RNA: mir-92 microRNA precursor family
RNA sequence: CCUUCUUUGCAGGUUGGGAUUAGUGGCAAUGCUCUGUUUUAAAAGUAUUGCACUCGUCCCGGCCUUUGAAGGAUUU
Numbered sequence: 001c002c003u004u005c006u007u008u009g010c011a012g013g014u015u016g017g018g019a020u021u022a023g024u025g026g027c028a029a030u031g032c033u034c035u036g037u038u039u040u041a042a043a044a045g046u047a048u049u050g051c052a053c054u055c056g057u058c059c060c061g062g063c064c065u066u067u068g069a070a071g072g073a074u075u076u
Base pairs, nucleotide, nucleotide: 004072005071006070009067011065012064013063014062016060017059018058019057020056022054023053024052026051027050028049029048030047031046032045033044